[Rfam]
RNA sequence: GAGUUAGUGGUAUGUGGCAAGGUUAACCCGUGUGGGGAAGCCGUAGCGAAAGCGAGUCCGAAUAGGGCGAUUCAGUCGCAUGCUCUAGACCCGAAGCGAAGUGAUCUACCCAUGGCCAGGAUGAAGCGACGGUAAGACGUCGUGGAGGUCCGAACCCACUUCAGUUGAAAAUGGAGGGGAUGAGCUGUGGGUAGGGGUGAAAGGCCAAUCAAACUUCGUGAUAGCUGGUU
Numbered sequence: 001g002a003g004u005u006a007g008u009g010g011u012a013u014g015u016g017g018c019a020a021g022g023u024u025a026a027c028c029c030g031u032g033u034g035g036g037g038a039a040g041c042c043g044u045a046g047c048g049a050a051a052g053c054g055a056g057u058c059c060g061a062a063u064a065g066g067g068c069g070a071u072u073c074a075g076u077c078g079c080a081u082g083c084u085c086u087a088g089a090c091c092c093g094a095a096g097c098g099a100a101g102u103g104a105u106c107u108a109c110c111c112a113u114g115g116c117c118a119g120g121a122u123g124a125a126g127c128g129a130c131g132g133u134a135a136g137a138c139g140u141c142g143u144g145g146a147g148g149u150c151c152g153a154a155c156c157c158a159c160u161u162c163a164g165u166u167g168a169a170a171a172u173g174g175a176g177g178g179g180a181u182g183a184g185c186u187g188u189g190g191g192u193a194g195g196g197g198u199g200a201a202a203g204g205c206c207a208a209u210c211a212a213a214c215u216u217c218g219u220g221a222u223a224g225c226u227g228g229u230u
Stems, first nucleotide, its partner, number of pairs: 005087003009084010021042004027036003046053002056068004090228002093225001097218006106194011117182001119151004126143006155179003159176005196206003
RNA: Bacterial large subunit ribosomal RNA, nucleotides 671 to 900
Organism: Nakamurella aerolata